[Rfam]
RNA: Small nucleolar SNORD12/SNORD106
Nucleotides: 087
Stems, first nucleotide, its partner, number of pairs: 002086008
Number, partner (000 for none) and nucleotide at each position: 001000u002086g003085u004084g005083g006082u007081g008080u009079c010000c011000a012000u013000g014000a015000u016000g017000a018000c019000u020000u021000u022000u023000c024000u025000u026000u027000c028000c029000c030000c031000g032000a033000c034000a035000g036000a037000u038000c039000g040000g041000c042000a043000a044000u045000g046000u047000u048000g049000a050000a051000a052000u053000u054000u055000a056000u057000a058000g059000u060000a061000a062000a063000a064000a065000g066000c067000c068000a069000a070000a071000u072000u073000g074000u075000c076000u077000g078000a079009g080008g081007c082006a083005c084004c085003a086002u087000u